[Rfam]
RNA sequence: AUUGUUGUUUUACCAGGCAAAGUUAGAUCUGGUUUUUGUGUCUAAUACUGUCUGGUAAUGCCGUCAAU
Numbered sequence: 001a002u003u004g005u006u007g008u009u010u011u012a013c014c015a016g017g018c019a020a021a022g023u024u025a026g027a028u029c030u031g032g033u034u035u036u037u038g039u040g041u042c043u044a045a046u047a048c049u050g051u052c053u054g055g056u057a058a059u060g061c062c063g064u065c066a067a068u
Base pairs, nucleotide, nucleotide: 002067003066004065006063007062009060010058011057012056013055014054015053016052017051018050019049022046023045024044025043026042027041